[Rfam]
RNA sequence: CAAAAAGAAGGGCUGAAGGCUCCUUAAAGAAUCGUUAGGGCGCCAUUGGAGGCGCCUUAAGGGGUUCCUUAAGGUGCCUUCAGUGGGCGGUGGGAAAUUUCCCGCCGCUGCUUGAGGGUGCCUCCUCCUUGAUGGAGGAGGCGCCUUCAUGUGC
Numbered sequence: 001c002a003a004a005a006a007g008a009a010g011g012g013c014u015g016a017a018g019g020c021u022c023c024u025u026a027a028a029g030a031a032u033c034g035u036u037a038g039g040g041c042g043c044c045a046u047u048g049g050a051g052g053c054g055c056c057u058u059a060a061g062g063g064g065u066u067c068c069u070u071a072a073g074g075u076g077c078c079u080u081c082a083g084u085g086g087g088c089g090g091u092g093g094g095a096a097a098u099u100u101c102c103c104g105c106c107g108c109u110g111c112u113u114g115a116g117g118g119u120g121c122c123u124c125c126u127c128c129u130u131g132a133u134g135g136a137g138g139a140g141g142c143g144c145c146u147u148c149a150u151g152u153g154c
Base pairs, nucleotide, nucleotide: 015081017057018056019055020054022052023051024050025049059080060079061078062077064075065074066073086109087108088107089106092103093102094101095100111151113149114148115147116146117145118144119143120142121141122140123139124138125137126136127135128134
Shown here is a 154-nucleotide RNA from Zingiber officinale, a member of the family "sbcD RNA". The organism belongs to Zingiber, within Eukaryota.